A member of the RNA family "Mason-Pfizer monkey virus packaging signal" from Jaculus jaculus, 305 nucleotides long. The base pairs follow the family's consensus structure, which was predicted with PFOLD. Taxonomically the source falls in Jaculus (Eukaryota, Chordata, Gnathostomata, Eutheria). Gene Ontology term of the family: viral genome packaging. The family has 9 seed sequences and 2,921 matches in Rfam 15.1. The match comes from Rfam's covariance-model search (67 bits).
[Rfam]
RNA sequence: UGGCGCCCGAACUUGGGGCUUGAGGUACGAAAUGUGACCUGGAUGUCGCUCAAGUGGAUGUCCAUCACCCCCAUUGGAUCGCCACCUCAUCGGUGAGUGAAGAUCUGCAUGCAAAUCACCGCAGGAGUGCCCACCUGUGAUACAGAUCCAGAGAGAUAAGAAAAGCAACGCAAUUAUGGGACAAGCAUUAAGUAAGCACGAAUUGUCUGUUGAAGGGCUUAAAACUUCUCUCAAGACACGAGGAACACGGGUUAAGAAAAAAGAUUUAGUGAAAUUCUUUGUCUUUUUAGAAGGUGUCUGUCCUU
Numbered sequence: 001u002g003g004c005g006c007c008c009g010a011a012c013u014u015g016g017g018g019c020u021u022g023a024g025g026u027a028c029g030a031a032a033u034g035u036g037a038c039c040u041g042g043a044u045g046u047c048g049c050u051c052a053a054g055u056g057g058a059u060g061u062c063c064a065u066c067a068c069c070c071c072c073a074u075u076g077g078a079u080c081g082c083c084a085c086c087u088c089a090u091c092g093g094u095g096a097g098u099g100a101a102g103a104u105c106u107g108c109a110u111g112c113a114a115a116u117c118a119c120c121g122c123a124g125g126a127g128u129g130c131c132c133a134c135c136u137g138u139g140a141u142a143c144a145g146a147u148c149c150a151g152a153g154a155g156a157u158a159a160g161a162a163a164a165g166c167a168a169c170g171c172a173a174u175u176a177u178g179g180g181a182c183a184a185g186c187a188u189u190a191a192g193u194a195a196g197c198a199c200g201a202a203u204u205g206u207c208u209g210u211u212g213a214a215g216g217g218c219u220u221a222a223a224a225c226u227u228c229u230c231u232c233a234a235g236a237c238a239c240g241a242g243g244a245a246c247a248c249g250g251g252u253u254a255a256g257a258a259a260a261a262a263g264a265u266u267u268a269g270u271g272a273a274a275u276u277c278u279u280u281g282u283c284u285u286u287u288u289a290g291a292a293g294g295u296g297u298c299u300g301u302c303c304u305u
Stems, first nucleotide, its partner, number of pairs: 006036001008034001013030003103157003110152001116146002120139005165182001169180001171178002190231001192228001194226001239281007249267005290305002293302003